[Rfam]
RNA sequence: UUUACUCGCUAGGGGAGCCAGAUGAGUCUGGCUGAGAGGGCGGCCCAACCGAUGCCGCUGACCCUUGAACCUGACCUGGGUUAUACCAGCGUAGGAAAGCAUCACUAUACCAGA
Numbered sequence: 001u002u003u004a005c006u007c008g009c010u011a012g013g014g015g016a017g018c019c020a021g022a023u024g025a026g027u028c029u030g031g032c033u034g035a036g037a038g039g040g041c042g043g044c045c046c047a048a049c050c051g052a053u054g055c056c057g058c059u060g061a062c063c064c065u066u067g068a069a070c071c072u073g074a075c076c077u078g079g080g081u082u083a084u085a086c087c088a089g090c091g092u093a094g095g096a097a098a099g100c101a102u103c104a105c106u107a108u109a110c111c112a113g114a
Base pairs, nucleotide, nucleotide: 008100009099010098011065012064013063014062016059017032018031019030020029021028040058041057042056043055070095071094072093073092076089077088078087079086
Annotation:
This 114-nucleotide sequence from Chloroflexi bacterium AL-W belongs to the Rfam family "TPP riboswitch aptamer (THI element)". The family's consensus secondary structure is taken from published work.